[Rfam]
RNA sequence: UCUGCGGGCCGGGCCCCUCUGGCGCGAUGUGAUCGGGAUACAGUCCCAUACAUUGCGUGAUGUCGGACCGCAUCG
Numbered sequence: 001u002c003u004g005c006g007g008g009c010c011g012g013g014c015c016c017c018u019c020u021g022g023c024g025c026g027a028u029g030u031g032a033u034c035g036g037g038a039u040a041c042a043g044u045c046c047c048a049u050a051c052a053u054u055g056c057g058u059g060a061u062g063u064c065g066g067a068c069c070g071c072a073u074c075g
Stems, first nucleotide, its partner, number of pairs: 006069002009066004022058010